[Rfam]
RNA: mir-2807 microRNA precursor family
Organism: Bombyx mori
RNA sequence: UUAACUCAAAUUUGUAUGCAGUUGGAACAGCGCCCCUAGCAGCAAACGUAGGCAAACGUUCCAACUCCAUACAAUUUUUUUUCU
Numbered sequence: 001u002u003a004a005c006u007c008a009a010a011u012u013u014g015u016a017u018g019c020a021g022u023u024g025g026a027a028c029a030g031c032g033c034c035c036c037u038a039g040c041a042g043c044a045a046a047c048g049u050a051g052g053c054a055a056a057c058g059u060u061c062c063a064a065c066u067c068c069a070u071a072c073a074a075u076u077u078u079u080u081u082u083c084u
Stems, first nucleotide, its partner, number of pairs: 008078003012074005018068001020066009034052002039047001